[Rfam]
RNA sequence: GCGAUGAGCUAAUUGCGUAAGUCGAUUAACAAUCCAAAUUGGAAUGCACGAAUGUGGCGUGCAGUUAAUCGCCGCAAUACGUAAAGGAUGCCGUAAUUGGCAUCCUU
Numbered sequence: 001g002c003g004a005u006g007a008g009c010u011a012a013u014u015g016c017g018u019a020a021g022u023c024g025a026u027u028a029a030c031a032a033u034c035c036a037a038a039u040u041g042g043a044a045u046g047c048a049c050g051a052a053u054g055u056g057g058c059g060u061g062c063a064g065u066u067a068a069u070c071g072c073c074g075c076a077a078u079a080c081g082u083a084a085a086g087g088a089u090g091c092c093g094u095a096a097u098u099g100g101c102a103u104c105c106u107u
Stems, first nucleotide, its partner, number of pairs: 013077005023071008033042002045063002048060003084107009
Shown here is a 107-nucleotide RNA sequence from Cytobacillus dafuensis, a member of the family "BsrF". On this family, see Saito et al., Gene 2008: "Novel small RNA-encoding genes in the intergenic regions of Bacillus subtilis". Taxonomically the source falls in Cytobacillus (Bacteria, Bacillati, Bacilli, Bacillaceae). The family's RNA type in Rfam is small RNA. It scores 89 bits against the family's covariance model.